[Rfam]
RNA sequence: UUGGUUCCGGUUCACGCCUCCGCACUCCGCGGAGACGACCCGGCGGCC
Numbered sequence: 001u002u003g004g005u006u007c008c009g010g011u012u013c014a015c016g017c018c019u020c021c022g023c024a025c026u027c028c029g030c031g032g033a034g035a036c037g038a039c040c041c042g043g044c045g046g047c048c
Stems, first nucleotide, its partner, number of pairs: 003048003007043004015037002018034006
Dot-bracket structure: ..(((.((((....((.((((((.....)))))).))..))))..)))
The record is a 48-nucleotide RNA sequence from Nocardioides szechwanensis, which matches "L31-Actinobacteria ribosomal protein leader" in Rfam.
The source organism's lineage runs through Bacteria, Bacillati, Propionibacteriales, Nocardioidaceae and Nocardioides.
The family's consensus secondary structure is taken from published work.
Its Rfam clan is "Ribosomal Protein L31 Leader clan".